[Rfam]
Selenocysteine insertion sequence 4: a 38-nucleotide RNA from Dethiosulfovibrio peptidovorans. It scores 39 bits against the family's covariance model.

RNA sequence: GGAACCUGCACGCGUUGCGGUGCAACGCUCGUGAAGGC
Numbered sequence: 001g002g003a004a005c006c007u008g009c010a011c012g013c014g015u016u017g018c019g020g021u022g023c024a025a026c027g028c029u030c031g032u033g034a035a036g037g038c
Stems, first nucleotide, its partner, number of pairs: 005031001013027006
The family's consensus secondary structure was predicted with PFOLD.
The literature on the family includes a 2001 paper in Arch Microbiol by Graentzdoerffer et al., "Molecular analysis of the grd operon coding for genes of the glycine reductase and of the thioredoxin system from Clostridium sticklandii".
Rfam classes the family as a cis-regulatory element.